[Rfam]
RNA sequence: UUGACUGUGCCAUGAAAAACUCCUAAAUUGAGGGUUAGGGUGGAGGGGAUUUCUCCCCUCCUUCUGACUGACUUAGUAUGCUGGCAAGCUAAUCACUAAGAGGACAAUCAGAAUGAUGAUUAACUUCAUCAUAACCCUUUCCUUAUG
Numbered sequence: 001u002u003g004a005c006u007g008u009g010c011c012a013u014g015a016a017a018a019a020c021u022c023c024u025a026a027a028u029u030g031a032g033g034g035u036u037a038g039g040g041u042g043g044a045g046g047g048g049a050u051u052u053c054u055c056c057c058c059u060c061c062u063u064c065u066g067a068c069u070g071a072c073u074u075a076g077u078a079u080g081c082u083g084g085c086a087a088g089c090u091a092a093u094c095a096c097u098a099a100g101a102g103g104a105c106a107a108u109c110a111g112a113a114u115g116a117u118g119a120u121u122a123a124c125u126u127c128a129u130c131a132u133a134a135c136c137c138u139u140u141c142c143u144u145a146u147g
Stems, first nucleotide, its partner, number of pairs: 031143004037138005044062003064111004113132006